A member of the RNA family "Bacterial RNase P class A" from Achromatium sp. WMS3, 372 nucleotides long.
The family's consensus secondary structure is taken from published work.
Rfam classes the family as a ribozyme.

RNA sequence: GGGAUAGGCUGAACGAUCGCUGCUGUCUGUAAUAGAGAGGAGAGGAAAGUCCGGACUCCAUAGGGCGUGGUGCCAGGUAACACCUGGGGAGUGAAAACUUACGGAUAGUGCCACAGAAAAUAUACCGCCAUUCUAUAAGUAUCUAGUAUGGUAAGGGUGAAAUGGUGCGGUAAAAGCGCACCGCAUCAAUGGUAACAUUGAUGGCAGGGUAAACCCCACCAGGAGCAAGACCAAAUAAGAGAAUAACCGUGUUGCCCGCACGAUUCUCGGGUAGGUCGCUUGAGUGCUAUGGUGACGUAGUGCCUAGAUGAAUGAUCGUUGUGAUUUGUUGUAUAAAUCAUACAGAACCCGGCUUAUAGGCCCAUUCCCUAU
Numbered sequence: 001g002g003g004a005u006a007g008g009c010u011g012a013a014c015g016a017u018c019g020c021u022g023c024u025g026u027c028u029g030u031a032a033u034a035g036a037g038a039g040g041a042g043a044g045g046a047a048a049g050u051c052c053g054g055a056c057u058c059c060a061u062a063g064g065g066c067g068u069g070g071u072g073c074c075a076g077g078u079a080a081c082a083c084c085u086g087g088g089g090a091g092u093g094a095a096a097a098c099u100u101a102c103g104g105a106u107a108g109u110g111c112c113a114c115a116g117a118a119a120a121u122a123u124a125c126c127g128c129c130a131u132u133c134u135a136u137a138a139g140u141a142u143c144u145a146g147u148a149u150g151g152u153a154a155g156g157g158u159g160a161a162a163u164g165g166u167g168c169g170g171u172a173a174a175a176g177c178g179c180a181c182c183g184c185a186u187c188a189a190u191g192g193u194a195a196c197a198u199u200g201a202u203g204g205c206a207g208g209g210u211a212a213a214c215c216c217c218a219c220c221a222g223g224a225g226c227a228a229g230a231c232c233a234a235a236u237a238a239g240a241g242a243a244u245a246a247c248c249g250u251g252u253u254g255c256c257c258g259c260a261c262g263a264u265u266c267u268c269g270g271g272u273a274g275g276u277c278g279c280u281u282g283a284g285u286g287c288u289a290u291g292g293u294g295a296c297g298u299a300g301u302g303c304c305u306a307g308a309u310g311a312a313u314g315a316u317c318g319u320u321g322u323g324a325u326u327u328g329u330u331g332u333a334u335a336a337a338u339c340a341u342a343c344a345g346a347a348c349c350c351g352g353c354u355u356a357u358a359g360g361c362c363c364a365u366u367c368c369c370u371a372u
Stems, first nucleotide, its partner, number of pairs: 001368005007362004011357001012320007020042002023039002026036003047355003051352004056225004063257004068221005073087005088102001089100004103216002108214002110210003125156002127152005133146003164182006183205001184203008229277004239268006248262005284303008
Rfam describes the family as follows. Ribonuclease P (RNase P) is a ubiquitous endoribonuclease, found in archaea, bacteria and eukarya as well as chloroplasts and mitochondria.
Its Rfam clan is "RNaseP clan".
Lineage of the source: Bacteria > Pseudomonadati > Thiotrichales > Thiotrichaceae > Achromatium.